RNA sequence: GACCACUAAAGAGGAGAGAGUACCUGGGGAAAACCCUUGGUACCGCCGAAGGCGCAACGCCCGCGAACGCUCAGGCAAAAGGACUCUUUGGCAUCA
Numbered sequence: 001g002a003c004c005a006c007u008a009a010a011g012a013g014g015a016g017a018g019a020g021u022a023c024c025u026g027g028g029g030a031a032a033a034c035c036c037u038u039g040g041u042a043c044c045g046c047c048g049a050a051g052g053c054g055c056a057a058c059g060c061c062c063g064c065g066a067a068c069g070c071u072c073a074g075g076c077a078a079a080a081g082g083a084c085u086c087u088u089u090g091g092c093a094u095c096a
Base pairs, nucleotide, nucleotide: 006091007090008089009088010087011086012085013084020043021042022041023040045076046075047074048072049071052070053069054068058065059064

Glycine riboswitch aptamer: a 96-nucleotide sequence from Iodobacter ciconiae. The match comes from Rfam's covariance-model search (60 bits). The base pairs follow the family's consensus structure.